[Rfam]
RNA sequence: CAGAAAUGGGGCCUCCUUUGAGGACAAGAAAAGCAUUUCGGAUCGCCUUAUCGCUGAUUAAAGCAGUCAUCCUUUGGCCUGAAGGGAGCUCCUAAUUCUU
Numbered sequence: 001c002a003g004a005a006a007u008g009g010g011g012c013c014u015c016c017u018u019u020g021a022g023g024a025c026a027a028g029a030a031a032a033g034c035a036u037u038u039c040g041g042a043u044c045g046c047c048u049u050a051u052c053g054c055u056g057a058u059u060a061a062a063g064c065a066g067u068c069a070u071c072c073u074u075u076g077g078c079c080u081g082a083a084g085g086g087a088g089c090u091c092c093u094a095a096u097u098c099u100u
Base pairs, nucleotide, nucleotide: 007094008093009092010091011090013088014087015086016085017084018083022080023079025077027075028074029073
Shown here is a 100-nucleotide RNA from Amborella trichopoda, a member of the family "MIR319 microRNA precursor family".
The match comes from Rfam's covariance-model search (63 bits).
Rfam links the family to the GO terms RISC complex and miRNA-mediated post-transcriptional gene silencing.
Taxonomically the source falls in Amborella (Eukaryota, Embryophyta, Spermatophyta, Amborellaceae).